[Rfam]
RNA sequence: UUUCUGAAGUAUGAUGAACUUGAAGAUCUGACCAAGACCAUGGAGUCUUCAUUCAAUCCAACACUGAGCUUCAAAAA
Numbered sequence: 001u002u003u004c005u006g007a008a009g010u011a012u013g014a015u016g017a018a019c020u021u022g023a024a025g026a027u028c029u030g031a032c033c034a035a036g037a038c039c040a041u042g043g044a045g046u047c048u049u050c051a052u053u054c055a056a057u058c059c060a061a062c063a064c065u066g067a068g069c070u071u072c073a074a075a076a077a
Base pairs, nucleotide, nucleotide: 001077002076003075005073006072007071008070009069010068
Shown here is a 77-nucleotide RNA from Clupea harengus, a member of the family "Small nucleolar RNA SNORD69". A search with the family's covariance model found it, with a score of 41 bits. Rfam classes the family as a C/D-box small nucleolar RNA. Rfam describes the family as follows. snoRNA HBII-210 belongs to the C/D family of snoRNAs. Its family is annotated with RNA processing and nucleolus in the Gene Ontology. Pairs were carried over by alignment from the consensus structure.